[Rfam]
RNA sequence: GAAGUUCUUCGGGGCAGGGUGGGAUUCCCUACCGGCGGUAUAGUCCGCGAACCGCGAAAGCGGCUGAUCCGGUGUAAUUCCGGAACCGACAGUAUAGUCUGGAUGAGAGAAGAAAUUG
Numbered sequence: 001g002a003a004g005u006u007c008u009u010c011g012g013g014g015c016a017g018g019g020u021g022g023g024a025u026u027c028c029c030u031a032c033c034g035g036c037g038g039u040a041u042a043g044u045c046c047g048c049g050a051a052c053c054g055c056g057a058a059a060g061c062g063g064c065u066g067a068u069c070c071g072g073u074g075u076a077a078u079u080c081c082g083g084a085a086c087c088g089a090c091a092g093u094a095u096a097g098u099c100u101g102g103a104u105g106a107g108a109g110a111a112g113a114a115a116u117u118g
Base pairs, nucleotide, nucleotide: 003116005114006113007112008111009110010109017029018028019027031098032097033088034087035048036047037046038045043086044085052063053062068084069083070082071081072080090101091100092099